[Rfam]
RNA: Hairpin ribozyme 1 from viruses-like metatranscriptomes
RNA sequence: GUGCGGUCCGGCCCAUCCGGGUCUGGGAAGCACGCCAGGGAAACACAACGAAAGUUGGCAUAUUAACUGGC
Numbered sequence: 001g002u003g004c005g006g007u008c009c010g011g012c013c014c015a016u017c018c019g020g021g022u023c024u025g026g027g028a029a030g031c032a033c034g035c036c037a038g039g040g041a042a043a044c045a046c047a048a049c050g051a052a053a054g055u056u057g058g059c060a061u062a063u064u065a066a067c068u069g070g071c
Stems, first nucleotide, its partner, number of pairs: 001033004009025003012021003034071005046057004